[Rfam]
RNA sequence: GGCUGCGAACUGUGGGGACGAUCUCCCCCUGCAGAUCCGGCCACGGCAAAUGCCGAAACCAUUUAGAGAGAAGGAG
Dot-bracket structure: ..(((.((.((((((((.........)))))))).)))))....................................